[Rfam]
RNA sequence: CCAAAGGCUCUUUUAAGAGCCACCCACAAUUUCAGAAAAAGCUGG
Numbered sequence: 001c002c003a004a005a006g007g008c009u010c011u012u013u014u015a016a017g018a019g020c021c022a023c024c025c026a027c028a029a030u031u032u033c034a035g036a037a038a039a040a041g042c043u044g045g
Stems, first nucleotide, its partner, number of pairs: 006021006
The record is a 45-nucleotide RNA sequence from Chelonoidis abingdonii, which matches "Histone 3' UTR stem-loop" in Rfam. For this family Rfam cites "Molecular mechanisms for the regulation of histone mRNA stem-loop-binding protein by phosphorylation" (Zhang et al., Proc Natl Acad Sci U S A, 2014). The family's RNA type in Rfam is cis-regulatory element.